[Rfam]
A member of the RNA family "SAM (S-adenosyl methionine) riboswitch aptamer" from Nakamurella leprariae, 111 nucleotides long. For this family Rfam cites "The aptamer core of SAM-IV riboswitches mimics the ligand-binding site of SAM-I riboswitches" (Weinberg et al., RNA, 2008). The family's consensus secondary structure is taken from published work.
RNA sequence: GGUCACGAGAUCCAGCGUCAAGCCCUGGCUUGCUGGACGGCAACCCUCCGGUGCGGGCGGGGUGCUCCAGGUGACGACCCGGCGGAGGCAGCCUCUCCGCAAGCCGUGGAC
Numbered sequence: 001g002g003u004c005a006c007g008a009g010a011u012c013c014a015g016c017g018u019c020a021a022g023c024c025c026u027g028g029c030u031u032g033c034u035g036g037a038c039g040g041c042a043a044c045c046c047u048c049c050g051g052u053g054c055g056g057g058c059g060g061g062g063u064g065c066u067c068c069a070g071g072u073g074a075c076g077a078c079c080c081g082g083c084g085g086a087g088g089c090a091g092c093c094u095c096u097c098c099g100c101a102a103g104c105c106g107u108g109g110a111c
Stems, first nucleotide, its partner, number of pairs: 001079004009038001011037006021030002039066003044062003048057002082100006088092001